[Rfam]
RNA sequence: UUAUCUGGUCGGAUCGGACCUCCACUGAUUUUCGCUUCGGUGAUAUUUCAAGAACGAUUAUCACCGGGUGAAAAUCAGGGCAGGUCCGAUUCCCCAUU
Dot-bracket structure: ..............(((((((.(.((((((((((((.(.((((((.............)))))).))))))))))))).).)))))))..........
Numbered sequence: 001u002u003a004u005c006u007g008g009u010c011g012g013a014u015c016g017g018a019c020c021u022c023c024a025c026u027g028a029u030u031u032u033c034g035c036u037u038c039g040g041u042g043a044u045a046u047u048u049c050a051a052g053a054a055c056g057a058u059u060a061u062c063a064c065c066g067g068g069u070g071a072a073a074a075u076c077a078g079g080g081c082a083g084g085u086c087c088g089a090u091u092c093c094c095c096a097u098u
Stems, first nucleotide, its partner, number of pairs: 015088007023080001025078012038066001040064006